RNA sequence: ACCAAUGAUGUUUUUUAACAAUCCAACUUGUCUGAGGUUGUAGUUAACCCAAGAUCCUGUUUACAGGGUGAACCUACUUGGUGUUACUACAUUUCCAAUGACAUCAGAGAUUAAACUGAGGU
Dot-bracket structure: (((...................................................(((((....)))))...................................................)))

This 122-nucleotide RNA sequence from Cicer arietinum belongs to the Rfam family "Small nucleolar RNA Z278". Rfam describes the family as follows. snoZ278 is a C/D box small nucleolar RNA. Its methylation guide targets have not been reported. It is annotated as a C/D-box small nucleolar RNA. Pairs were carried over by alignment from the consensus structure, which was predicted with PFOLD.